[Rfam]
RNA sequence: AGUCAUGUUUUUCCACAGCUUUCUUGAACUUUUCAACAAACGUAAUGUAACCGAUCCAUCAAUCUGGAUCGGUUACUUACACGUUUUGUUUGAAAAGCUCAAGAAAGCUGUGGGAGGACAUGACGA
Number, nucleotide and partner (000 for none) at each position: 001a000002g000003u123004c122005a121006u120007g119008u000009u000010u000011u000012u000013c113014c112015a111016c000017a109018g108019c107020u106021u105022u104023c000024u102025u101026g100027a099028a000029c097030u096031u095032u094033u093034c092035a091036a090037c000038a000039a000040a000041c000042g000043u000044a000045a000046u000047g000048u000049a000050a000051c000052c000053g000054a000055u000056c000057c000058a000059u000060c000061a000062a000063u000064c000065u000066g000067g000068a000069u000070c000071g000072g000073u000074u000075a000076c000077u000078u000079a000080c000081a000082c000083g000084u000085u000086u000087u000088g000089u000090u036091u035092g034093a033094a032095a031096a030097g029098c000099u027100c026101a025102a024103g000104a022105a021106a020107g019108c018109u017110g000111u015112g014113g013114g000115a000116g000117g000118a000119c007120a006121u005122g004123a003124c000125g000126a000